mir-3492 microRNA precursor family: a 78-nucleotide sequence from Schistosoma haematobium. It scores 71 bits against the family's covariance model. Rfam links the family to the GO terms RISC complex and miRNA-mediated post-transcriptional gene silencing.
[Rfam]
RNA sequence: AGCCUUUUGUAUCCGUGCUGAGACUUCGUCACACACCAGACCUCAAGAGUUGAUGAGACUUCCCAGAUAAGUGAAGCG
Dot-bracket structure: .((.((.(.((((...(..(((..((((((.....................)))))).))))...)))).).)).)).
Numbered sequence: 001a002g003c004c005u006u007u008u009g010u011a012u013c014c015g016u017g018c019u020g021a022g023a024c025u026u027c028g029u030c031a032c033a034c035a036c037c038a039g040a041c042c043u044c045a046a047g048a049g050u051u052g053a054u055g056a057g058a059c060u061u062c063c064c065a066g067a068u069a070a071g072u073g074a075a076g077c078g
Stems, first nucleotide, its partner, number of pairs: 002077002005074002008071001010069004017062001020061003025057006
The base pairs follow the family's consensus structure, which was predicted with RNAalifold.